[Rfam]
RNA sequence: UUUAACUCCUUGCAGCACAGCAAUAUUGGAGGGUAGCUACCCCUCCAAUAUUGCUGUGCUGCAAGGAGUUAAA
Numbered sequence: 001u002u003u004a005a006c007u008c009c010u011u012g013c014a015g016c017a018c019a020g021c022a023a024u025a026u027u028g029g030a031g032g033g034u035a036g037c038u039a040c041c042c043c044u045c046c047a048a049u050a051u052u053g054c055u056g057u058g059c060u061g062c063a064a065g066g067a068g069u070u071a072a073a
Stems, first nucleotide, its partner, number of pairs: 001073003005069003010066001011063008022052008

mir-16 microRNA precursor family: a 73-nucleotide RNA sequence from Lanius ludovicianus. Lineage of the source: Eukaryota > Opisthokonta > Vertebrata > Neognathae > Lanius. On this family, see Jin et al., Mol Cell 2020: "Structural Basis for pri-miRNA Recognition by Drosha". A search with the family's covariance model found it, with a score of 46 bits. The family's consensus secondary structure was predicted with PFOLD.